A member of the RNA family "Enterobacterial sRNA STnc450" from Klebsiella michiganensis, 58 nucleotides long. Rfam classes the family as a small RNA. Pairs were carried over by alignment from the consensus structure, which was predicted with CMfinder. The match comes from Rfam's covariance-model search (37 bits).

[Rfam]
RNA sequence: CGCUAUACUACGCCGUGCUAUCGCCGGUCCAGGGCCUUCGGACCGGCUUUUUGUGAAU
Dot-bracket structure: .((((...)).))...(.....((((((((.........))))))))...).......